[Rfam]
RNA sequence: UGCCAGUGAGGACACCCCUGUUCUAACCCCAGAGCCAGUAAUGGUGAACCCACUGGGGUAACUGGGAGAGAAGAUGAGAACUUGUUCCCUAAGGAACUGUCUGAGGUAC
Numbered sequence: 001u002g003c004c005a006g007u008g009a010g011g012a013c014a015c016c017c018c019u020g021u022u023c024u025a026a027c028c029c030c031a032g033a034g035c036c037a038g039u040a041a042u043g044g045u046g047a048a049c050c051c052a053c054u055g056g057g058g059u060a061a062c063u064g065g066g067a068g069a070g071a072a073g074a075u076g077a078g079a080a081c082u083u084g085u086u087c088c089c090u091a092a093g094g095a096a097c098u099g100u101c102u103g104a105g106g107u108a109c
Base pairs, nucleotide, nucleotide: 001108002107003106004105

A member of the RNA family "Small nucleolar RNA SNORD22" from Microcebus murinus, 109 nucleotides long. The family has 49 seed sequences and 1,081 matches in Rfam 15.1. Gene Ontology terms of the family: nucleolus and RNA processing. A search with the family's covariance model found it, with a score of 101 bits. A reference for the family is Tycowski et al. (1996), "A mammalian gene with introns instead of exons generating stable RNA products", Nature. Rfam classes the family as a C/D-box small nucleolar RNA. The base pairs follow the family's consensus structure, which was predicted with PFOLD.